[Rfam]
RNA sequence: UGACCUCAGAUCAGGCAAGACUACCCGCUGAAUUUAAGCAUAUUAAUAAGCGGAGGAAAAGAAACUAACAAGGAUUCCCUCAGUAACGGCGAGUGAAGUGGGAAUGGCUCAAGCUUGAAAUCUCUGUUGCUUGCAACAGCGAAUUGUAGUCUCGAGAAGCGUUUUCCCGGCGGAUCUAUCCUGCCUAAGUUGCUUGGAACAGCACAUCAGAGAGGGUGACAAUCCCGUUUGUGGCAGGGCAGACCGUUCAUGAUACGCUUUCCAUGAGUCGGGUUGCUUGGGAAUGCAGCCCAAAAUUGGUGGUAAACUCCAUCUAAAGCUAAAUAUUGGCACGAGACCGAUAGCGAACAAGUACCGUGAGGGAAAGAUGAAAAGAACUUUGAAAAGAGAGUUAAAAAGUGCGUGAAACCGUUAGAGGGGAAG
Numbered sequence: 001u002g003a004c005c006u007c008a009g010a011u012c013a014g015g016c017a018a019g020a021c022u023a024c025c026c027g028c029u030g031a032a033u034u035u036a037a038g039c040a041u042a043u044u045a046a047u048a049a050g051c052g053g054a055g056g057a058a059a060a061g062a063a064a065c066u067a068a069c070a071a072g073g074a075u076u077c078c079c080u081c082a083g084u085a086a087c088g089g090c091g092a093g094u095g096a097a098g099u100g101g102g103a104a105u106g107g108c109u110c111a112a113g114c115u116u117g118a119a120a121u122c123u124c125u126g127u128u129g130c131u132u133g134c135a136a137c138a139g140c141g142a143a144u145u146g147u148a149g150u151c152u153c154g155a156g157a158a159g160c161g162u163u164u165u166c167c168c169g170g171c172g173g174a175u176c177u178a179u180c181c182u183g184c185c186u187a188a189g190u191u192g193c194u195u196g197g198a199a200c201a202g203c204a205c206a207u208c209a210g211a212g213a214g215g216g217u218g219a220c221a222a223u224c225c226c227g228u229u230u231g232u233g234g235c236a237g238g239g240c241a242g243a244c245c246g247u248u249c250a251u252g253a254u255a256c257g258c259u260u261u262c263c264a265u266g267a268g269u270c271g272g273g274u275u276g277c278u279u280g281g282g283a284a285u286g287c288a289g290c291c292c293a294a295a296a297u298u299g300g301u302g303g304u305a306a307a308c309u310c311c312a313u314c315u316a317a318a319g320c321u322a323a324a325u326a327u328u329g330g331c332a333c334g335a336g337a338c339c340g341a342u343a344g345c346g347a348a349c350a351a352g353u354a355c356c357g358u359g360a361g362g363g364a365a366a367g368a369u370g371a372a373a374a375g376a377a378c379u380u381u382g383a384a385a386a387g388a389g390a391g392u393u394a395a396a397a398a399g400u401g402c403g404u405g406a407a408a409c410c411g412u413u414a415g416a417g418g419g420g421a422a423g
Base pairs, nucleotide, nucleotide: 024055025053026052027051028050029049035042036041065072066071076103077102078101079100086094087093106321107320108319109318113150114149115148118145119144121142122141124139125138126137127136156262157261158259159258160257161256163255165253166252171246172245173244175242179239180238181237182236183235184234185233189205191204192203193202194201208212215225216224271292272291273290274289275288276287277286299314300313301312302311355362356361378389379388380387381386

Eukaryotic large subunit ribosomal RNA: a 423-nucleotide part of an RNA from Aurelia sp. Incheon-2006.
Taxonomically the source falls in Aurelia (Eukaryota, Metazoa, Eumetazoa, Semaeostomeae).
Rfam's curators put it in the seed alignment.